[Rfam]
Nucleotides: 179
Stems, first nucleotide, its partner, number of pairs: 019075002022072005029065003035056002038053001040051004099172006106165001123148001126145003
Number, partner (000 for none) and nucleotide at each position: 001000u002000u003000c004000u005000u006000c007000u008000g009000c010000a011000a012000a013000a014000a015000a016000g017000a018000a019075c020074u021000c022072u023071g024070c025069u026068a027000a028000a029065a030064u031063u032000u033000c034000c035056u036055a037000a038053a039000u040051c041050a042049g043048g044000u045000u046000g047000u048043c049042u050041u051040g052000u053038u054000u055036u056035a057000g058000g059000g060000g061000a062000u063031a064030a065029u066000g067000c068026u069025a070024g071023c072022a073000g074020a075019g076000u077000a078000a079000c080000a081000u082000g083000u084000g085000g086000a087000a088000g089000u090000a091000g092000a093000u094000g095000a096000u097000u098000u099172g100171c101170g102169c103168u104167g105000u106165a107000c108000u109000g110000c111000a112000a113000a114000u115000g116000a117000g118000a119000u120000u121000u122000g123148g124000g125000c126145g127144g128143a129000c130000c131000u132000c133000u134000u135000u136000c137000u138000u139000a140000a141000u142000g143128u144127c145126c146000a147000g148123u149000g150000u151000c152000c153000u154000a155000u156000g157000u158000c159000u160000c161000a162000a163000a164000g165106u166000c167104c168103a169102g170101u171100g172099c173000c174000a175000c176000a177000c178000u179000u

Shown here is a 179-nucleotide RNA sequence from Albula goreensis, a member of the family "Small nucleolar RNA SNORA81". It scores 97 bits against the family's covariance model. By type it is an H/ACA-box small nucleolar RNA. The base pairs follow the family's consensus structure, which was predicted with WAR.